RNA sequence: CGCGGCUUGUCAGGAGAGAGCCGACGCCACCGUGCCGAGGCCGCCGAAGGCGCAGGGCCCACCAACGCGAGUUGGCCGCCCGAACGCUCAGGCAAAAGGACUGGCAAACAUGG
Numbered sequence: 001c002g003c004g005g006c007u008u009g010u011c012a013g014g015a016g017a018g019a020g021c022c023g024a025c026g027c028c029a030c031c032g033u034g035c036c037g038a039g040g041c042c043g044c045c046g047a048a049g050g051c052g053c054a055g056g057g058c059c060c061a062c063c064a065a066c067g068c069g070a071g072u073u074g075g076c077c078g079c080c081c082g083a084a085c086g087c088u089c090a091g092g093c094a095a096a097a098g099g100a101c102u103g104g105c106a107a108a109c110a111u112g113g
Stems, first nucleotide, its partner, number of pairs: 007107007020041003043093003046089002050087003056080002
Rfam assigns this 113-nucleotide sequence from Aquabacterium sp. NJ1 to the family "Glycine riboswitch aptamer". About the family: This family represents the bacterial glycine riboswitch. Pairs were carried over by alignment from the consensus structure. The match comes from Rfam's covariance-model search (50 bits). The organism belongs to Aquabacterium, within Bacteria.